[Rfam]
RNA sequence: UCCAUCGUGAGGUGGAAUCUGAAGGAAGCUGGAUGUGAGGAAAAUACUAACUCAUGGGCAAAUCUCUGGUCUGACGGACAGAAAUUCUUAUAUGAGGGUAUGCAUGAGGGUAAGGUUGCACGCCCAAUCGAACCACAAUAACUACACGGAAUCAUGCAUGAUAAAUGAGGCAGAUGGAUGGGAGAGAAAAAACGUGUG
Numbered sequence: 001u002c003c004a005u006c007g008u009g010a011g012g013u014g015g016a017a018u019c020u021g022a023a024g025g026a027a028g029c030u031g032g033a034u035g036u037g038a039g040g041a042a043a044a045u046a047c048u049a050a051c052u053c054a055u056g057g058g059c060a061a062a063u064c065u066c067u068g069g070u071c072u073g074a075c076g077g078a079c080a081g082a083a084a085u086u087c088u089u090a091u092a093u094g095a096g097g098g099u100a101u102g103c104a105u106g107a108g109g110g111u112a113a114g115g116u117u118g119c120a121c122g123c124c125c126a127a128u129c130g131a132a133c134c135a136c137a138a139u140a141a142c143u144a145c146a147c148g149g150a151a152u153c154a155u156g157c158a159u160g161a162u163a164a165a166u167g168a169g170g171c172a173g174a175u176g177g178a179u180g181g182g183a184g185a186g187a188a189a190a191a192a193c194g195u196g197u198g
Stems, first nucleotide, its partner, number of pairs: 001016006051198001053196003063185005068179001069175005086170006097162001099160001101158007108136001110134001114129004
RNA: Group II catalytic intron D1-D4-3